[Rfam]
Shown here is a 75-nucleotide RNA sequence, a member of the family "Fibro-purF RNA".
RNA sequence: GGCCGUUCCUUUGCUUGCACCCGUCCGGGUGGGCUAUGACCUUCGAGGUAGAGGGAACAUACAUUUCAAAGAGGC
Numbered sequence: 001g002g003c004c005g006u007u008c009c010u011u012u013g014c015u016u017g018c019a020c021c022c023g024u025c026c027g028g029g030u031g032g033g034c035u036a037u038g039a040c041c042u043u044c045g046a047g048g049u050a051g052a053g054g055g056a057a058c059a060u061a062c063a064u065u066u067c068a069a070a071g072a073g074g075c
Stems, first nucleotide, its partner, number of pairs: 005058007018031005039049003